[Rfam]
RNA: nadA riboswitch
RNA sequence: UGUUGCAACAACCCCGUGGAUUGGGUGGUGAGGCGGAAGAAGGCUGAAACCACAGUGAACCCACUGCAACA
Numbered sequence: 001u002g003u004u005g006c007a008a009c010a011a012c013c014c015c016g017u018g019g020a021u022u023g024g025g026u027g028g029u030g031a032g033g034c035g036g037a038a039g040a041a042g043g044c045u046g047a048a049a050c051c052a053c054a055g056u057g058a059a060c061c062c063a064c065u066g067c068a069a070c071a
Base pairs, nucleotide, nucleotide: 001071002070003069004068005067006066007065013057014055016064017063018062019061021059022058023056025053026052027051028050029049
Dot-bracket structure: (((((((.....[[.((((.(((.(((((...................))))).])])).)))))))))))